RNA sequence: AGGUCAGCUUAGCCUAGCGGUUCCUUCAGCAACAUAACAAAUUUGUUCCUUUCCCAGUUCAAGUCCCGUGGGCGCUGUCUGGCCUUUUA
Number, nucleotide and partner (000 for none) at each position: 001a000002g084003g083004u082005c081006a080007g079008c000009u000010u000011a000012g073013c072014c071015u070016a000017g069018c068019g067020g066021u000022u000023c000024c000025u063026u062027c000028a000029g059030c000031a000032a000033c000034a000035u000036a000037a000038c000039a000040a000041a000042u000043u000044u000045g000046u000047u000048c000049c000050u000051u000052u000053c000054c000055c000056a000057g000058u000059u029060c000061a000062a026063g025064u000065c000066c020067c019068g018069u017070g015071g014072g013073c012074g000075c000076u000077g000078u000079c007080u006081g005082g004083c003084c002085u000086u000087u000088u000089a000